U4 spliceosomal RNA: a 136-nucleotide RNA sequence from Albula glossodonta. U4 small nuclear RNA (U4 snRNA) is a component of the major U2-dependent spliceosome. Lineage of the source: Eukaryota > Craniata > Actinopterygii > Elopocephala > Albula. Rfam classes the family as a spliceosomal small nuclear RNA.
RNA sequence: AGCUUUGCGCAGUGGCAGUAUCGUAGCCUAUGAGGUUUAUCCGAGGCGCGAUUAUUGCUAGUUGAAAACUUUACCCAAUCCCCCGCUGGACGACUUGAAUAUAGUCGACUAUGGCAACUUUGAUGGUCUCAAAGAC
Number, nucleotide and partner (000 for none) at each position: 001a000002g000003c000004u000005u000006u000007g000008c000009g000010c000011a000012g000013u000014g000015g000016c000017a000018g000019u000020a052021u051022c050023g049024u048025a000026g047027c046028c045029u000030a000031u000032g000033a000034g042035g041036u000037u000038u000039a000040u000041c035042c034043g000044a000045g028046g027047c026048g024049c023050g022051a021052u020053u000054a000055u000056u000057g000058c000059u000060a000061g000062u000063u000064g000065a000066a000067a000068a000069c000070u000071u000072u000073a000074c000075c000076c000077a000078a000079u000080c000081c000082c000083c000084c000085g115086c114087u111088g110089g109090a000091c107092g106093a105094c104095u103096u000097g000098a000099a000100u000101a000102u000103a095104g094105u093106c092107g091108a000109c089110u088111a087112u000113g000114g086115c085116a000117a000118c000119u000120u000121u000122g000123a000124u000125g000126g136127u135128c134129u133130c000131a000132a000133a129134g128135a127136c126